[Rfam]
A member of the RNA family "Selenocysteine transfer RNA" from Thermosyntropha lipolytica, 94 nucleotides long. The literature on the family includes a 2000 paper in FEBS Lett by Mizutani and Goto, "Eukaryotic selenocysteine tRNA has the 9/4 secondary structure".
RNA sequence: GGAAGCGGAUCGGUCCUGGUGGGCCGCCUGGACUUCAAAUCCAGUCGUGCGGCGGUGGUCCCGGCGCAGGUGAGUUCGAUUCUCACACGCUUCC
Numbered sequence: 001g002g003a004a005g006c007g008g009a010u011c012g013g014u015c016c017u018g019g020u021g022g023g024c025c026g027c028c029u030g031g032a033c034u035u036c037a038a039a040u041c042c043a044g045u046c047g048u049g050c051g052g053c054g055g056u057g058g059u060c061c062c063g064g065c066g067c068a069g070g071u072g073a074g075u076u077c078g079a080u081u082c083u084c085a086c087a088c089g090c091u092u093c094c
Base pairs, nucleotide, nucleotide: 001094002093003092004091005090006089007088008086011026012025013024014023015022016021028044029043030042031041032040048068049067050066051065071085072084073083074082